[Rfam]
The record is a 153-nucleotide RNA sequence from Paludifilum halophilum, which matches "c-di-AMP riboswitch aptamer (ydaO/yuaA leader)" in Rfam.
RNA sequence: GCCAUUCAAUCGCUGAAUUCGACGAAAGUCGAGCGGGGGACCCGUUCUAAUGGGGUGAAUCCCGUAUUUCUCCGGGUGAGAGAUGCGGGUAGGGCAAACUCUUCCAAAGCCCGAAUCCGUCAGCUAACCUCGUAAGCGUUGGUGAAGAGGGUG
Numbered sequence: 001g002c003c004a005u006u007c008a009a010u011c012g013c014u015g016a017a018u019u020c021g022a023c024g025a026a027a028g029u030c031g032a033g034c035g036g037g038g039g040a041c042c043c044g045u046u047c048u049a050a051u052g053g054g055g056u057g058a059a060u061c062c063c064g065u066a067u068u069u070c071u072c073c074g075g076g077u078g079a080g081a082g083a084u085g086c087g088g089g090u091a092g093g094g095c096a097a098a099c100u101c102u103u104c105c106a107a108a109g110c111c112c113g114a115a116u117c118c119g120u121c122a123g124c125u126a127a128c129c130u131c132g133u134a135a136g137c138g139u140u141g142g143u144g145a146a147g148a149g150g151g152u153g
Stems, first nucleotide, its partner, number of pairs: 011138004019032003033133006043052002053118003061089012092112004

Annotation
Gene Ontology terms of the family: cyclic-di-AMP binding and regulation of gene expression. NCBI's taxonomy places the organism under Bacteria, Bacillota, Bacilli, Thermoactinomycetaceae, Paludifilum. This family represents a conserved RNA structure found upstream of the ydaO and yuaA genes in Bacillus subtilis and related genes in other bacteria.